[Rfam]
RNA sequence: UUCUCGCCCGUGGUAUCUAAUGUCCAGUUUUUAUGUAUUUGUAACUGGACAUUUCGUUUUAAGGGCGAAUAGAAAUUGUUUACCAGGUCUUGCGACACAGUUGGCUUUUUUCUAUCACAAGCUUUCUGUUACUAAAUCCCUGGUCACAUUG
Numbered sequence: 001u002u003c004u005c006g007c008c009c010g011u012g013g014u015a016u017c018u019a020a021u022g023u024c025c026a027g028u029u030u031u032u033a034u035g036u037a038u039u040u041g042u043a044a045c046u047g048g049a050c051a052u053u054u055c056g057u058u059u060u061a062a063g064g065g066c067g068a069a070u071a072g073a074a075a076u077u078g079u080u081u082a083c084c085a086g087g088u089c090u091u092g093c094g095a096c097a098c099a100g101u102u103g104g105c106u107u108u109u110u111u112c113u114a115u116c117a118c119a120a121g122c123u124u125u126c127u128g129u130u131a132c133u134a135a136a137u138c139c140c141u142g143g144u145c146a147c148a149u150u151g
Base pairs, nucleotide, nucleotide: 004068005067006066007065008064009063019053020052021051022050023049024048025047026046027045028044029043035042082144083143084142085141086140097129098128099127100126103123104122105121106120